Rfam assigns this 188-nucleotide RNA sequence from Desulfoluna spongiiphila to the family "Group II catalytic intron D1-D4-3". The match comes from Rfam's covariance-model search (95 bits). Lineage of the source: Bacteria > Pseudomonadati > Desulfobacteria > Desulfolunaceae > Desulfoluna. Its family is annotated with Group II intron splicing in the Gene Ontology.
[Rfam]
RNA sequence: GUAUCGGUGACGGUGCUUGGGAAGGCAGUCGUCCUGUUGCGACAGGAUACCGUGAAGGUACGGGGUGACGUACAGGAACCGAGUUGAGGCGUGCAUGAGUGGGACGAGCCUGCAACACAAGGCAAAGUCCUCUAUCCACUAUAAGCUCUGUCCGUAUACUCGGCGUUCACGUACCGAAAGACGUGUGU
Numbered sequence: 001g002u003a004u005c006g007g008u009g010a011c012g013g014u015g016c017u018u019g020g021g022a023a024g025g026c027a028g029u030c031g032u033c034c035u036g037u038u039g040c041g042a043c044a045g046g047a048u049a050c051c052g053u054g055a056a057g058g059u060a061c062g063g064g065g066u067g068a069c070g071u072a073c074a075g076g077a078a079c080c081g082a083g084u085u086g087a088g089g090c091g092u093g094c095a096u097g098a099g100u101g102g103g104a105c106g107a108g109c110c111u112g113c114a115a116c117a118c119a120a121g122g123c124a125a126a127g128u129c130c131u132c133u134a135u136c137c138a139c140u141a142u143a144a145g146c147u148c149u150g151u152c153c154g155u156a157u158a159c160u161c162g163g164c165g166u167u168c169a170c171g172u173a174c175c176g177a178a179a180g181a182c183g184u185g186u187g188u
Base pairs, nucleotide, nucleotide: 001016002015003014004013005012006011045188047186048185049184053180057175058174059173060172061171062170063168064167065166066165067164079163080162081161082160083159084158089155090154091153093151094150095149097148098147099146100145102130103129104128105127108123109122110121111120